[Rfam]
RNA sequence: GCCCUUGAAUCUUUCCCAUGCCUUGCAGAACAAUGCAGGCUUGGGAACAUGUAGUGGUAAAGUGAAGCAGGAGCAAUGCAGAAAAGUUGACUUCCCCCACUGGGGGCUCUUCUCUACACCUUUGCAAGACUG
Numbered sequence: 001g002c003c004c005u006u007g008a009a010u011c012u013u014u015c016c017c018a019u020g021c022c023u024u025g026c027a028g029a030a031c032a033a034u035g036c037a038g039g040c041u042u043g044g045g046a047a048c049a050u051g052u053a054g055u056g057g058u059a060a061a062g063u064g065a066a067g068c069a070g071g072a073g074c075a076a077u078g079c080a081g082a083a084a085a086g087u088u089g090a091c092u093u094c095c096c097c098c099a100c101u102g103g104g105g106g107c108u109c110u111u112c113u114c115u116a117c118a119c120c121u122u123u124g125c126a127a128g129a130c131u132g
Stems, first nucleotide, its partner, number of pairs: 002056001004054002013047006021039002067125005080113004085108003094104003
A member of the RNA family "Small nucleolar RNA SNORA55" from Pogona vitticeps, 132 nucleotides long. The organism belongs to Pogona, within Eukaryota. Rfam 15.1 lists 1,476 matches to the family in 616 species. Rfam describes the family as follows. ACA55 is a member of the H/ACA class of snoRNA that guide the sites of modification of uridines to pseudouridines.